Rfam assigns this 54-nucleotide sequence from Salmo trutta to the family "UnaL2 LINE 3' element".
Pairs were carried over by alignment from the consensus structure, which is taken from published work.
Rfam's curators write: The eel long interspersed element (LINE) UnaL2 and its partner short interspersed element (SINE) share a conserved 3' tail containing a stem-loop that is critical for their retrotransposition. Presumably, the first step of retrotransposition is the recognition of their 3' tails by UnaL2-encoded reverse transcriptase. The solution structure of a 17-nucleotide RNA derived from the 3' tail of UnaL2 was determined by NMR.
It is annotated as a cis-regulatory element.
[Rfam]
RNA sequence: UACUCAGUACUUUGUAAGUCGCUCUGGAUAAGAGCGUCUGCUAAAUGACUUAAA
Numbered sequence: 001u002a003c004u005c006a007g008u009a010c011u012u013u014g015u016a017a018g019u020c021g022c023u024c025u026g027g028a029u030a031a032g033a034g035c036g037u038c039u040g041c042u043a044a045a046u047g048a049c050u051u052a053a054a
Base pairs, nucleotide, nucleotide: 013043014041015040016039020036021035022034023033024032025031